[Rfam]
The family of this 310-nucleotide RNA from Bos indicus x Bos taurus is "7SK RNA". Pairs were carried over by alignment from the consensus structure, which is taken from published work.

RNA sequence: GGAUGUUCAGGCAAUCUGAUUACGACAUUUAUCACCCUAUUGAUCGCCAGGGUUGAUUCGGCUGAUCUGGCUGGCUGGGCGACUGUCCCCUUCCUCCCUCGCUGCUCCGUGUGCACCCCUCCCGAAGCUGCAUGCUUGGCCGAAGAGGACAACCAUCCCCGAGAGAGGAGGACCAGUCUUCAAUCAAGGGUAUACAAGUAGCUGCUCUCCCCCGCUAGAACCUCCAAACAAGCUCCCAAGUACAGUUUCUGCUGAAUGUGUAUAGUUUUCCCCACCACCAUGAAAUAGAAAAAUCAAAAUUUCAUUAGGU
Numbered sequence: 001g002g003a004u005g006u007u008c009a010g011g012c013a014a015u016c017u018g019a020u021u022a023c024g025a026c027a028u029u030u031a032u033c034a035c036c037c038u039a040u041u042g043a044u045c046g047c048c049a050g051g052g053u054u055g056a057u058u059c060g061g062c063u064g065a066u067c068u069g070g071c072u073g074g075c076u077g078g079g080c081g082a083c084u085g086u087c088c089c090c091u092u093c094c095u096c097c098c099u100c101g102c103u104g105c106u107c108c109g110u111g112u113g114c115a116c117c118c119c120u121c122c123c124g125a126a127g128c129u130g131c132a133u134g135c136u137u138g139g140c141c142g143a144a145g146a147g148g149a150c151a152a153c154c155a156u157c158c159c160c161g162a163g164a165g166a167g168g169a170g171g172a173c174c175a176g177u178c179u180u181c182a183a184u185c186a187a188g189g190g191u192a193u194a195c196a197a198g199u200a201g202c203u204g205c206u207c208u209c210c211c212c213c214g215c216u217a218g219a220a221c222c223u224c225c226a227a228a229c230a231a232g233c234u235c236c237c238a239a240g241u242a243c244a245g246u247u248u249c250u251g252c253u254g255a256a257u258g259u260g261u262a263u264a265g266u267u268u269u270c271c272c273c274a275c276c277a278c279c280a281u282g283a284a285a286u287a288g289a290a291a292a293a294u295c296a297a298a299a300u301u302u303c304a305u306u307a308g309g310u
Base pairs, nucleotide, nucleotide: 001108002107003106005102006101010097011096014092018090024087025086026085027084029082030081032079033078035074036073037070038069039068042067043066044065045064046062047061048060116171117170118168119167120166121165122139123138124137125136127135128134141161142160147158148157149156201266202265203264208262213260214259215258222254225251228250230248231247232246277310278309279308280305281304282303283302284301286297288295289294
The family has 45 seed sequences and 49,373 matches in Rfam 15.1. The family's RNA type in Rfam is non-coding RNA gene.